[Rfam]
RNA sequence: AACUACAUCAAAUAAAUAGCCUAUAUAAUACCGAAAUAUGGUCGGUUAGUCUCUACCUAAAGCCGUAAACUUUAGACUAUAAGCGCUUCUUAAAAACUG
Numbered sequence: 001a002a003c004u005a006c007a008u009c010a011a012a013u014a015a016a017u018a019g020c021c022u023a024u025a026u027a028a029u030a031c032c033g034a035a036a037u038a039u040g041g042u043c044g045g046u047u048a049g050u051c052u053c054u055a056c057c058u059a060a061a062g063c064c065g066u067a068a069a070c071u072u073u074a075g076a077c078u079a080u081a082a083g084c085g086c087u088u089c090u091u092a093a094a095a096a097c098u099g
Stems, first nucleotide, its partner, number of pairs: 019084002022081004029048001030046005057075006
RNA: Purine riboswitch aptamer
Organism: Limosilactobacillus reuteri